Shown here is a 384-nucleotide RNA from Arthrobacter sp. SW1, a member of the family "Bacterial RNase P class A". By type it is a ribozyme. NCBI's taxonomy places the organism under Bacteria, Actinomycetota, Micrococcales, Micrococcaceae, Arthrobacter. The match comes from Rfam's covariance-model search (300 bits).
[Rfam]
RNA sequence: CGGGGCAGCCAGGCGACCGCGCGCCACGCAAGUGGCUCGAGGAACGUCCGGGCUCCACAGGGCAGGGUGGUGGGUAACGCCCACUCGGGGUAACCCGCAGGCCAGUGCCACAGAAAACAGACCGCCGUGCUCCGCGUUUACGCGGAACACAGGUAAGGGUGAAACGGUGGUGUAAGAGACCACCAGCUUCCCGGGUGACCGGGAAGGCUAGGUAAACCCCACCCGGAGCAAGGCCAGACAGGACACGUUCGAGGGCUGCCCGCCCGAGUGUCCGGGUAGGCCGCUGGAGGGCGCCGGCAACGGCGUCCGUAGAUGGAUGGUCGCCUCUUCCCGGCCGGCAACGGCCCGGAAUGACAGAACCCGGCGUAUCGGCUGCCCCGUCCC
Numbered sequence: 001c002g003g004g005g006c007a008g009c010c011a012g013g014c015g016a017c018c019g020c021g022c023g024c025c026a027c028g029c030a031a032g033u034g035g036c037u038c039g040a041g042g043a044a045c046g047u048c049c050g051g052g053c054u055c056c057a058c059a060g061g062g063c064a065g066g067g068u069g070g071u072g073g074g075u076a077a078c079g080c081c082c083a084c085u086c087g088g089g090g091u092a093a094c095c096c097g098c099a100g101g102c103c104a105g106u107g108c109c110a111c112a113g114a115a116a117a118c119a120g121a122c123c124g125c126c127g128u129g130c131u132c133c134g135c136g137u138u139u140a141c142g143c144g145g146a147a148c149a150c151a152g153g154u155a156a157g158g159g160u161g162a163a164a165c166g167g168u169g170g171u172g173u174a175a176g177a178g179a180c181c182a183c184c185a186g187c188u189u190c191c192c193g194g195g196u197g198a199c200c201g202g203g204a205a206g207g208c209u210a211g212g213u214a215a216a217c218c219c220c221a222c223c224c225g226g227a228g229c230a231a232g233g234c235c236a237g238a239c240a241g242g243a244c245a246c247g248u249u250c251g252a253g254g255g256c257u258g259c260c261c262g263c264c265c266g267a268g269u270g271u272c273c274g275g276g277u278a279g280g281c282c283g284c285u286g287g288a289g290g291g292c293g294c295c296g297g298c299a300a301c302g303g304c305g306u307c308c309g310u311a312g313a314u315g316g317a318u319g320g321u322c323g324c325c326u327c328u329u330c331c332c333g334g335c336c337g338g339c340a341a342c343g344g345c346c347c348g349g350a351a352u353g354a355c356a357g358a359a360c361c362c363g364g365c366g367u368a369u370c371g372g373c374u375g376c377c378c379c380g381u382c383c384c
Stems, first nucleotide, its partner, number of pairs: 001380010011369001012325007020039002023036005044367003048364005053228004060261004065224005070084005085099001086097004100219002105217002107213003122158002124154003128149002131146006166184006186208001187206008232282004241273006253265004289308008